[Rfam]
Nucleotides: 114
Stems, first nucleotide, its partner, number of pairs: 034073001036071001038069001040065002042062002083110011
Number, partner (000 for none) and nucleotide at each position: 001000u002000u003000g004000u005000a006000a007000g008000a009000u010000g011000a012000g013000u014000u015000a016000a017000u018000u019000c020000u021000g022000a023000a024000u025000a026000u027000u028000u029000u030000u031000a032000u033000c034073a035000a036071a037000a038069a039000a040065a041064u042062u043061g044000c045000a046000a047000u048000u049000u050000g051000a052000u053000u054000a055000u056000a057000u058000c059000a060000u061043u062042g063000u064041g065040u066000c067000u068000g069038u070000a071036u072000a073034u074000a075000g076000g077000c078000a079000a080000u081000a082000u083110a084109a085108a086107a087106g088105a089104a090103c091102c092101u093100g094000a095000u096000a097000a098000a099000g100093c101092a102091g103090g104089u105088u106087c107086u108085u109084u110083u111000u112000u113000u114000a